Shown here is a 130-nucleotide RNA from Rhinopithecus bieti, a member of the family "U4 spliceosomal RNA". The organism belongs to Rhinopithecus, within Eukaryota.

RNA sequence: AGCUUUGUGCAGUGGCAGUAUCAUAGCCAGUCAGUUUAUCUGAGGUGCAAUGAUUGUUAAUUGAAAUUUAAUAUUUCAAUUUGAUAUUUCACUUUGAUAUUUUUAAAACUUAUAGUACACUUUUGUAUGU
Numbered sequence: 001a002g003c004u005u006u007g008u009g010c011a012g013u014g015g016c017a018g019u020a021u022c023a024u025a026g027c028c029a030g031u032c033a034g035u036u037u038a039u040c041u042g043a044g045g046u047g048c049a050a051u052g053a054u055u056g057u058u059a060a061u062u063g064a065a066a067u068u069u070a071a072u073a074u075u076u077c078a079a080u081u082u083g084a085u086a087u088u089u090c091a092c093u094u095u096g097a098u099a100u101u102u103u104u105a106a107a108a109c110u111u112a113u114a115g116u117a118c119a120c121u122u123u124u125g126u127a128u129g130u
Stems, first nucleotide, its partner, number of pairs: 020051002024047001026046003033041002081106003084102001086100002089097003119130002122127001
The family's consensus secondary structure is taken from published work. U4 small nuclear RNA (U4 snRNA) is a component of the major U2-dependent spliceosome.